[Rfam]
RNA sequence: GCCCUCGUAGCUCAGGGGAUAGAGCGACGGUUUCCUAAACCGCAGGUCGGAGGUUCGAUUCCUCCCGGGGGCA
Numbered sequence: 001g002c003c004c005u006c007g008u009a010g011c012u013c014a015g016g017g018g019a020u021a022g023a024g025c026g027a028c029g030g031u032u033u034c035c036u037a038a039a040c041c042g043c044a045g046g047u048c049g050g051a052g053g054u055u056c057g058a059u060u061c062c063u064c065c066c067g068g069g070g071g072c073a
Base pairs, nucleotide, nucleotide: 001072002071003070004069005068006067007066010025011024012023013022028042029041030040031039049065050064051063052062053061
RNA: tRNA
Organism: Blastopirellula retiformator